RNA sequence: GCCGGCGUCAUUUUUGUGAUUUGCAGCUAGUAAUCUGGCUCCAGUUGCAUAGUCACAAAAGUGAUC
Numbered sequence: 001g002c003c004g005g006c007g008u009c010a011u012u013u014u015u016g017u018g019a020u021u022u023g024c025a026g027c028u029a030g031u032a033a034u035c036u037g038g039c040u041c042c043a044g045u046u047g048c049a050u051a052g053u054c055a056c057a058a059a060a061g062u063g064a065u066c
Base pairs, nucleotide, nucleotide: 007066008064009063010062011061012060013059014058015057016056017055018054019053020052022049023048024047025046026045027044028043
Shown here is a 66-nucleotide RNA sequence from Neodrepanis coruscans, a member of the family "mir-153 microRNA precursor family".
Rfam 15.1 lists 1,565 matches to the family in 711 species.
For this family Rfam cites "Identification and expression profiling of microRNAs during bovine oocyte maturation using heterologous approach" (Tesfaye et al., Mol Reprod Dev, 2009).